[Rfam]
Overview:
Shown here is a 72-nucleotide RNA from Claviceps purpurea, a member of the family "tRNA".

RNA sequence: GCUCGGAUAACUCAGUGGUAGAGUGUGAGAUUGCAAAUCUCGAAGUCCUUGGUUCGAAUCCGAGUUCGAGCU
Numbered sequence: 001g002c003u004c005g006g007a008u009a010a011c012u013c014a015g016u017g018g019u020a021g022a023g024u025g026u027g028a029g030a031u032u033g034c035a036a037a038u039c040u041c042g043a044a045g046u047c048c049u050u051g052g053u054u055c056g057a058a059u060c061c062g063a064g065u066u067c068g069a070g071c072u
Stems, first nucleotide, its partner, number of pairs: 001071007010024004026042005048064005
About this RNA: Rfam classes the family as a transfer RNA. Lineage of the source: Eukaryota > Ascomycota > leotiomyceta > Sordariomycetes > Claviceps purpurea.